[Rfam]
RNA: Purine riboswitch aptamer
Organism: Schaedlerella arabinosiphila
RNA sequence: UGCAUAAGUAUUUUGGAAACUUAUAUAUGUCCGAGAUUGGUCGGACGUUUCUACUAACUACCGUAAUAGUUAACUAUAAGUUUUCAUAUCGGGAAC
Numbered sequence: 001u002g003c004a005u006a007a008g009u010a011u012u013u014u015g016g017a018a019a020c021u022u023a024u025a026u027a028u029g030u031c032c033g034a035g036a037u038u039g040g041u042c043g044g045a046c047g048u049u050u051c052u053a054c055u056a057a058c059u060a061c062c063g064u065a066a067u068a069g070u071u072a073a074c075u076a077u078a079a080g081u082u083u084u085c086a087u088a089u090c091g092g093g094a095a096c
Base pairs, nucleotide, nucleotide: 018082019081020080021079022078023077024076025075029046030045031044032043033042034041055072056071057070058069059068060067